[Rfam]
This 85-nucleotide sequence belongs to the Rfam family "Small nucleolar RNA SNORD105".
For this family Rfam cites "Identification of 13 novel human modification guide RNAs" (Vitali et al., Nucleic Acids Res, 2003).
It is annotated as a C/D-box small nucleolar RNA.
The family is grouped with related families in Rfam's "SNORD105 clan".
RNA sequence: CCCCUAUCUCUCAUGAUGAACACAUAUGCCUCUGAGCUGCUGUGAUUUCUGGCUUCAAAGUAAACGCUCUGAAGAAGAGAUGGGG
Numbered sequence: 001c002c003c004c005u006a007u008c009u010c011u012c013a014u015g016a017u018g019a020a021c022a023c024a025u026a027u028g029c030c031u032c033u034g035a036g037c038u039g040c041u042g043u044g045a046u047u048u049c050u051g052g053c054u055u056c057a058a059a060g061u062a063a064a065c066g067c068u069c070u071g072a073a074g075a076a077g078a079g080a081u082g083g084g085g
Stems, first nucleotide, its partner, number of pairs: 002085004007080004
Background: About the family: U105 belongs to the C/D family of snoRNAs. It is encoded in an intron of the Suppressor of SWI4 1 homolog (Ssf-1) (Peter Pan homolog) gene. and is predicted to guide 2'O-ribose methylation of residue U799 of the small 18S rRNA subunit.